[Rfam]
TPP riboswitch aptamer (THI element): a 108-nucleotide sequence from Bacillus sp. OxB-1. Lineage of the source: Bacteria > Bacillota > Caryophanales > Bacillaceae > Bacillus. From the family's description: Vitamin B(1) in its active form thiamin pyrophosphate (TPP) is an essential coenzyme that is synthesised by coupling of pyrimidine and thiazole moieties in bacteria. It scores 81 bits against the family's covariance model. Pairs were carried over by alignment from the consensus structure, which is taken from published work.
RNA sequence: UGUUACCACUAGGGGAGUCUUGCAAAAGGACUGAGACGCGUAUGGCUAUGCGGACCCUUGGAACCUGAUCUGGUUGAUGCCAGCGGAGGGAAGUGGAGUGGCGAUUGC
Number, nucleotide and partner (000 for none) at each position: 001u000002g000003u000004u000005a000006c096007c095008a094009c093010u092011a058012g057013g056014g055015g000016a000017g031018u030019c029020u028021u027022g000023c000024a000025a000026a000027a021028g020029g019030a018031c017032u000033g000034a000035g000036a000037c000038g051039c050040g049041u048042a047043u000044g000045g000046c000047u042048a041049u040050g039051c038052g000053g000054a000055c014056c013057c012058u011059u000060g000061g000062a000063a000064c089065c088066u087067g000068a000069u000070c083071u082072g081073g080074u000075u000076g000077a000078u000079g000080c073081c072082a071083g070084c000085g000086g000087a066088g065089g064090g000091a000092a010093g009094u008095g007096g006097a000098g000099u000100g000101g000102c000103g000104a000105u000106u000107g000108c000